[Rfam]
RNA sequence: ACGAGUGUCAUUUUAAUACUAUGCAGCUUUGAAUAAUGUUAGUUGCAUAGUAAUAAAAGUGAUCAUGCGU
Number, nucleotide and partner (000 for none) at each position: 001a000002c069003g068004a000005g066006u065007g064008u062009c061010a060011u059012u058013u057014u056015a000016a000017u052018a051019c050020u000021a000022u047023g046024c045025a044026g043027c042028u000029u000030u000031g000032a000033a000034u000035a000036a000037u000038g000039u000040u000041a000042g027043u026044u025045g024046c023047a022048u000049a000050g019051u018052a017053a000054u000055a000056a014057a013058a012059g011060u010061g009062a008063u000064c007065a006066u005067g000068c003069g002070u000
RNA: mir-153 microRNA precursor family